[Rfam]
RNA sequence: CGGGUUACGUCGUCGGCGGCAUCACCACGCGUCGGCUCUGGAGAACACCCCUUCGGGUGCCACCCGGCCGUGCCGCCCUGCUGGCGUCAGAGCAGCGACGAUGACGCACCGG
Numbered sequence: 001c002g003g004g005u006u007a008c009g010u011c012g013u014c015g016g017c018g019g020c021a022u023c024a025c026c027a028c029g030c031g032u033c034g035g036c037u038c039u040g041g042a043g044a045a046c047a048c049c050c051c052u053u054c055g056g057g058u059g060c061c062a063c064c065c066g067g068c069c070g071u072g073c074c075g076c077c078c079u080g081c082u083g084g085c086g087u088c089a090g091a092g093c094a095g096c097g098a099c100g101a102u103g104a105c106g107c108a109c110c111g112g
Stems, first nucleotide, its partner, number of pairs: 015077006027071003031068005039062003046059005